The family of this 108-nucleotide RNA sequence from Oryza meyeriana is "mir-172 microRNA precursor family".
RNA sequence: GCGUUUGCUGAUGCAGCAUCAUCAAGAUUCUCAUCACAUAUAGUAAGCCACACCUGUCGUUUAGGAUGAACUCGAUGUGAAUCUUGAUGGUGCUGCACCUGCAAGCAC
Numbered sequence: 001g002c003g004u005u006u007g008c009u010g011a012u013g014c015a016g017c018a019u020c021a022u023c024a025a026g027a028u029u030c031u032c033a034u035c036a037c038a039u040a041u042a043g044u045a046a047g048c049c050a051c052a053c054c055u056g057u058c059g060u061u062u063a064g065g066a067u068g069a070a071c072u073c074g075a076u077g078u079g080a081a082u083c084u085u086g087a088u089g090g091u092g093c094u095g096c097a098c099c100u101g102c103a104a105g106c107a108c
Stems, first nucleotide, its partner, number of pairs: 010099001012097019032077004

NCBI's taxonomy places the organism under Eukaryota, Viridiplantae, Oryzoideae, Oryzeae, Oryza meyeriana. Its family is annotated with miRNA-mediated post-transcriptional gene silencing and RISC complex in the Gene Ontology.